[Rfam]
RNA sequence: CAGGUAUCCUUUGACUCUUCUUAGUUCAACCAAAUGAACUAAAGUUUUAAAAUGAAACAAUUUUUUGAAAAACUAGUUCAUUUGUUUGAACCAAAGAGAGUCGAUGGGUACCCUG
Numbered sequence: 001c002a003g004g005u006a007u008c009c010u011u012u013g014a015c016u017c018u019u020c021u022u023a024g025u026u027c028a029a030c031c032a033a034a035u036g037a038a039c040u041a042a043a044g045u046u047u048u049a050a051a052a053u054g055a056a057a058c059a060a061u062u063u064u065u066u067g068a069a070a071a072a073c074u075a076g077u078u079c080a081u082u083u084g085u086u087u088g089a090a091c092c093a094a095a096g097a098g099a100g101u102c103g104a105u106g107g108g109u110a111c112c113c114u115g
Stems, first nucleotide, its partner, number of pairs: 003112007011104009021094002024091006031084011
Background:
Rfam assigns this 115-nucleotide sequence from Brachypodium distachyon to the family "MIR5070 microRNA precursor family". Gene Ontology terms of the family: RISC complex and miRNA-mediated post-transcriptional gene silencing. A search with the family's covariance model found it, with a score of 101 bits.